[Rfam]
Annotation
The record is a 191-nucleotide RNA from Odobenus rosmarus, which matches "U2 spliceosomal RNA" in Rfam.

Nucleotides: 191
Base pairs, nucleotide, nucleotide: 007026008025009024011022012021013020014019047066048065049064050063051062068084069083070082071081072080073079112144113143114142115141118138119137124135125134126133127132147184148183149182150181151180152179154176155175156174157173158172
Number, partner (000 for none) and nucleotide at each position: 001000a002000u003000c004000g005000c006000u007026u008025c009024u010000c011022g012021g013020c014019c015000u016000u017000u018000u019014g020013g021012c022011u023000a024009a025008g026007a027000u028000c029000a030000a031000g032000u033000g034000u035000a036000g037000u038000a039000u040000c041000u042000g043000u044000u045000c046000u047066u048065a049064u050063c051062a052000g053000u054000u055000u056000a057000a058000u059000a060000c061000g062051u063050g064049a065048u066047a067000c068084g069083u070082u071081c072080u073079c074000u075000a076000u077000c078000c079073g080072a081071g082070g083069a084068c085000a086000a087000u088000a089000u090000a091000u092000u093000a094000a095000a096000u097000g098000g099000a100000u101000u102000u103000u104000u105000g106000g107000a108000g109000c110000u111000g112144g113143g114142a115141g116000a117000u118138g119137g120000a121000a122000u123000a124135g125134g126133a127132g128000c129000u130000u131000g132127c133126u134125c135124c136000g137119u138118c139000c140000a141115c142114u143113c144112u145000g146000c147184g148183c149182a150181u151180c152179g153000a154176u155175c156174u157173g158172g159000u160000a161000u162000u163000g164000c165000a166000g167000u168000a169000u170000u171000u172158c173157c174156a175155g176154g177000c178000c179152u180151g181150g182149u183148g184147c185000a186000c187000c188000c189000u190000u191000c
Notes
Gene Ontology terms of the family: U2 snRNP, pre-mRNA branch point binding and mRNA branch site recognition. By type it is a spliceosomal small nuclear RNA. Rfam's curators write: U2 is a small nuclear RNA (snRNA) component of the spliceosome (involved in pre-mRNA splicing).